Annotation:
Rfam assigns this 164-nucleotide RNA sequence from Ixodes scapularis to the family "U1 spliceosomal RNA". By type it is a spliceosomal small nuclear RNA. The match comes from Rfam's covariance-model search (134 bits). Gene Ontology terms of the family: U1 snRNP, pre-mRNA 5'-splice site binding and mRNA 5'-splice site recognition. The source organism's lineage runs through Eukaryota, Arthropoda, Chelicerata, Ixodinae and Ixodes. U1 is a small nuclear RNA (snRNA) component of the spliceosome (involved in pre-mRNA splicing).
RNA sequence: AUACUUACCUGGUGCCGGGGCUACCUUGAUCAACGAGGAGGUGCCUCCAGGGAGAGGCGCGGCCAUUGCACCUCGGCUGUGCUGACCCCUGCCACUAUCCCAAACUGGGACAGAUGGGGCAUGCAAUUUUUGGUAGUGGGGGACUGCAUUCGCGCUAUCCCCCU
Numbered sequence: 001a002u003a004c005u006u007a008c009c010u011g012g013u014g015c016c017g018g019g020g021c022u023a024c025c026u027u028g029a030u031c032a033a034c035g036a037g038g039a040g041g042u043g044c045c046u047c048c049a050g051g052g053a054g055a056g057g058c059g060c061g062g063c064c065a066u067u068g069c070a071c072c073u074c075g076g077c078u079g080u081g082c083u084g085a086c087c088c089c090u091g092c093c094a095c096u097a098u099c100c101c102a103a104a105c106u107g108g109g110a111c112a113g114a115u116g117g118g119g120c121a122u123g124c125a126a127u128u129u130u131u132g133g134u135a136g137u138g139g140g141g142g143a144c145u146g147c148a149u150u151c152g153c154g155c156u157a158u159c160c161c162c163c164u
Stems, first nucleotide, its partner, number of pairs: 012122004017047005023042005049090004054086001056083003060079005092117003095113001099108002138163006146155002